A member of the RNA family "6S-Flavo RNA", 104 nucleotides long. The sequence is in the family's curated seed alignment. Pairs were carried over by alignment from the consensus structure, which is taken from published work. By type it is a small RNA.
[Rfam]
RNA sequence: ACUCAACACUAUUUUUUUUAAAAAAGGUGAGUCUGUAUGCUAGAGCGCGCCCUAAGGGGAUUUUCGAAUAUAUAGUUAGCCUUAAACUUGUAUAACAGGAGUUU
Numbered sequence: 001a002c003u004c005a006a007c008a009c010u011a012u013u014u015u016u017u018u019u020a021a022a023a024a025a026g027g028u029g030a031g032u033c034u035g036u037a038u039g040c041u042a043g044a045g046c047g048c049g050c051c052c053u054a055a056g057g058g059g060a061u062u063u064u065c066g067a068a069u070a071u072a073u074a075g076u077u078a079g080c081c082u083u084a085a086a087c088u089u090g091u092a093u094a095a096c097a098g099g100a101g102u103u104u
Stems, first nucleotide, its partner, number of pairs: 024083005034074005043065003050059003